[Rfam]
Small nucleolar RNA SNORD113/SNORD114 family: a 70-nucleotide sequence from Sciurus carolinensis. From the family's description: The imprinted human domain at 14q32 contains two clusters of tandemly repeated small nucleolar RNAs named 14q(I) and 14q(II) snoRNAs. Clan: SNORD74 clan. It scores 53 bits against the family's covariance model. The base pairs follow the family's consensus structure, which is taken from published work. Taxonomically the source falls in Sciurus (Eukaryota, Euarchontoglires, Rodentia, Sciuridae). By type it is a C/D-box small nucleolar RNA.
RNA sequence: UAGAUCAAUGAUUCCUUCUGGUGGCGUACGAGUGGUACCAUGAAUCCGUGUCUGGAACUCUCAGGUCCAU
Numbered sequence: 001u002a003g004a005u006c007a008a009u010g011a012u013u014c015c016u017u018c019u020g021g022u023g024g025c026g027u028a029c030g031a032g033u034g035g036u037a038c039c040a041u042g043a044a045u046c047c048g049u050g051u052c053u054g055g056a057a058c059u060c061u062c063a064g065g066u067c068c069a070u
Stems, first nucleotide, its partner, number of pairs: 003067004